[Rfam]
RNA sequence: CCCUUUGUGAUGCUUGAACAGCACGACUUUCAUUCUUCUGAGUCUGAUGAAGACAAAUGGAUCUGUGCUGAGAGGG
Dot-bracket structure: (((.(..................................................................).)))
The family of this 76-nucleotide RNA from Clupea harengus is "Small nucleolar RNA SNORD59". A reference for the family is Galardi et al. (2002), "Purified box C/D snoRNPs are able to reproduce site-specific 2'-O-methylation of target RNA in vitro", Mol Cell Biol. It is annotated as a C/D-box small nucleolar RNA. Pairs were carried over by alignment from the consensus structure, which was predicted with ILM.